[Rfam]
RNA sequence: CCGAUACAUAUAAAACAUGCAUUCUAUUCACUGUGCCAUCUGUCAAUUUGUUAGAUGAUCAGAGGGGAAAAGAAGAGCUAGAGCAAUGGUUACGGAAUGGUAGCAAUACCAUAUCGUGAUCUCUAAUGAGCGUCCUCAUACUGUCCAAGGUGUUCAACCAUUUUACAAUGAAUAUUUAUGGCCUUGGUCGGUAACUGCGCAAGUGAGAUAUUU
Numbered sequence: 001c002c003g004a005u006a007c008a009u010a011u012a013a014a015a016c017a018u019g020c021a022u023u024c025u026a027u028u029c030a031c032u033g034u035g036c037c038a039u040c041u042g043u044c045a046a047u048u049u050g051u052u053a054g055a056u057g058a059u060c061a062g063a064g065g066g067g068a069a070a071a072g073a074a075g076a077g078c079u080a081g082a083g084c085a086a087u088g089g090u091u092a093c094g095g096a097a098u099g100g101u102a103g104c105a106a107u108a109c110c111a112u113a114u115c116g117u118g119a120u121c122u123c124u125a126a127u128g129a130g131c132g133u134c135c136u137c138a139u140a141c142u143g144u145c146c147a148a149g150g151u152g153u154u155c156a157a158c159c160a161u162u163u164u165a166c167a168a169u170g171a172a173u174a175u176u177u178a179u180g181g182c183c184u185u186g187g188u189c190g191g192u193a194a195c196u197g198c199g200c201a202a203g204u205g206a207g208a209u210a211u212u213u
Base pairs, nucleotide, nucleotide: 019078020077022074023073031064032063034061035060037057038056039055040054041053123207124206126204127203130200131199132198141191142190143189145187146186147185148184149183150182151181153180163172164171

Background: Shown here is a 213-nucleotide RNA sequence from Naumovozyma castellii, a member of the family "Small nucleolar RNA snR8". Taxonomically the source falls in Naumovozyma (Eukaryota, Opisthokonta, Fungi, Saccharomycotina).